A member of the RNA family "msiK RNA" from Agromyces albus, 59 nucleotides long.
[Rfam]
RNA sequence: CGACGCAGUCCAUCACUACGGAUCGUCCGGCACGUACCUGCCGGUGAAGGAGAACAGAA
Number, nucleotide and partner (000 for none) at each position: 001c000002g000003a000004c000005g000006c000007a000008g000009u051010c050011c049012a000013u047014c046015a045016c000017u000018a000019c000020g000021g000022a000023u000024c000025g000026u000027c044028c043029g042030g041031c040032a039033c000034g000035u000036a000037c000038c000039u032040g031041c030042c029043g028044g027045u015046g014047a013048a000049g011050g010051a009052g000053a000054a000055c000056a000057g000058a000059a000
Background:
The match comes from Rfam's covariance-model search (63 bits). By type it is a cis-regulatory element.